[Rfam]
RNA: Ruegeria cis8 sRNA
Organism: Pelagibacterales bacterium SAG-MED09
RNA sequence: ACUGCAAGAAUCCUUGCAAUGUAUGGGAUUAGUGGCAGAUUUAAAAUUAAUAAGAUUACCAUUCCUAUAUACAUUGACAUAAUAACUGCCCAAAAAAUUUCUGGGUUAGUCAUAUAAAGUCUUGGGCC
Numbered sequence: 001a002c003u004g005c006a007a008g009a010a011u012c013c014u015u016g017c018a019a020u021g022u023a024u025g026g027g028a029u030u031a032g033u034g035g036c037a038g039a040u041u042u043a044a045a046a047u048u049a050a051u052a053a054g055a056u057u058a059c060c061a062u063u064c065c066u067a068u069a070u071a072c073a074u075u076g077a078c079a080u081a082a083u084a085a086c087u088g089c090c091c092a093a094a095a096a097a098u099u100u101c102u103g104g105g106u107u108a109g110u111c112a113u114a115u116a117a118a119g120u121c122u123u124g125g126g127c128c
Base pairs, nucleotide, nucleotide: 003018004017005016006015007014008013026128027127029125030124031123034121035120036119039113040112045107046106047105048104050102052100053099054098056097057096062092066088067087073083074082075081